This 101-nucleotide RNA from Aegilops tauschii belongs to the Rfam family "Plastid-psbA-1 3UTR RNA". On this family, see Richter et al., Plant Commun 2023: "Retrograde signaling in plants: A critical review focusing on the GUN pathway and beyond".
RNA sequence: CUGAAUUCUGAAUAGAAAGAUUAAGAAGAAAAAAAAGAUUCAAAAUAAAGACAGAAAUACCCAAUAUCUUGUUCUAGCAAGAUAUUGGGUAUUUCUGUCUU
Numbered sequence: 001c002u003g004a005a006u007u008c009u010g011a012a013u014a015g016a017a018a019g020a021u022u023a024a025g026a027a028g029a030a031a032a033a034a035a036a037g038a039u040u041c042a043a044a045a046u047a048a049a050g051a052c053a054g055a056a057a058u059a060c061c062c063a064a065u066a067u068c069u070u071g072u073u074c075u076a077g078c079a080a081g082a083u084a085u086u087g088g089g090u091a092u093u094u095c096u097g098u099c100u101u
Base pairs, nucleotide, nucleotide: 048101049100050099051098052097053096054095055094056093057092058091059090060089062087063086064085066083067082068081069080070079
Pairs were carried over by alignment from the consensus structure, which was predicted with LocARNA. It scores 55 bits against the family's covariance model. The organism belongs to Aegilops tauschii, within Eukaryota.